RNA sequence: AUAAUUACCUGGCAGGGGAGGGACCAUGAUCACAAAGAUGGUUUUCCCAGGGGGAAGCUUAUCCACUGUACUCUCGAUGGGCUGACCCCUGGGAUUUCCCCAAAUGUGGGAAGCUUAACUGCAUAAUUUGUGGUAGUGGGGAACUGUGUUCAAACUAGAGACCAAA
Numbered sequence: 001a002u003a004a005u006u007a008c009c010u011g012g013c014a015g016g017g018g019a020g021g022g023a024c025c026a027u028g029a030u031c032a033c034a035a036a037g038a039u040g041g042u043u044u045u046c047c048c049a050g051g052g053g054g055a056a057g058c059u060u061a062u063c064c065a066c067u068g069u070a071c072u073c074u075c076g077a078u079g080g081g082c083u084g085a086c087c088c089c090u091g092g093g094a095u096u097u098c099c100c101c102a103a104a105u106g107u108g109g110g111a112a113g114c115u116u117a118a119c120u121g122c123a124u125a126a127u128u129u130g131u132g133g134u135a136g137u138g139g140g141g142a143a144c145u146g147u148g149u150u151c152a153a154a155c156u157a158g159a160g161a162c163c164a165a166a
Stems, first nucleotide, its partner, number of pairs: 012122004016048006023042005049090004054086001056083003060079004093116002095113003099109002
A member of the RNA family "U1 spliceosomal RNA" from Carlito syrichta, 166 nucleotides long. Lineage of the source: Eukaryota > Eumetazoa > Deuterostomia > Primates > Carlito. It is annotated as a spliceosomal small nuclear RNA. Its Rfam clan is "U1 clan". Rfam's curators write: U1 is a small nuclear RNA (snRNA) component of the spliceosome (involved in pre-mRNA splicing). Pairs were carried over by alignment from the consensus structure, which is taken from published work.